Notes: mir-101 microRNA precursor family: a 59-nucleotide RNA sequence from Equus caballus. On this family, see Mourelatos et al., Genes Dev 2002: "miRNPs: a novel class of ribonucleoproteins containing numerous microRNAs". Its family is annotated with miRNA-mediated post-transcriptional gene silencing and RISC complex in the Gene Ontology. The family's consensus secondary structure was predicted with RNAalifold.
[Rfam]
RNA sequence: CUCAGUUAUCACAGUGCUGAUGCUGUCAGUUCUAAAGGUACAGUACUGUGAUAACUGAA
Numbered sequence: 001c002u003c004a005g006u007u008a009u010c011a012c013a014g015u016g017c018u019g020a021u022g023c024u025g026u027c028a029g030u031u032c033u034a035a036a037g038g039u040a041c042a043g044u045a046c047u048g049u050g051a052u053a054a055c056u057g058a059a
Base pairs, nucleotide, nucleotide: 003057004056005055006054007053008052009051010050011049012048013047014046015045016044017043019041021040022039023038024037